[Rfam]
RNA sequence: UUUUGCUUCCAGCUUCUUUACAGUGCUGCCUUGUAGCGUCUUUAUCAAGCAGCAUUGUACAGGGCUAUGAAAGCAAUG
Numbered sequence: 001u002u003u004u005g006c007u008u009c010c011a012g013c014u015u016c017u018u019u020a021c022a023g024u025g026c027u028g029c030c031u032u033g034u035a036g037c038g039u040c041u042u043u044a045u046c047a048a049g050c051a052g053c054a055u056u057g058u059a060c061a062g063g064g065c066u067a068u069g070a071a072a073g074c075a076a077u078g
Base pairs, nucleotide, nucleotide: 014064015063016062017061019059020058021057022056023055024054025053026052027051028050030049031048032047033046
This 78-nucleotide RNA from Erpetoichthys calabaricus belongs to the Rfam family "mir-103/107 microRNA precursor family". Pairs were carried over by alignment from the consensus structure, which was predicted with RNAalifold. The literature on the family includes a 2001 paper in Cell by Ambros, "microRNAs: tiny regulators with great potential".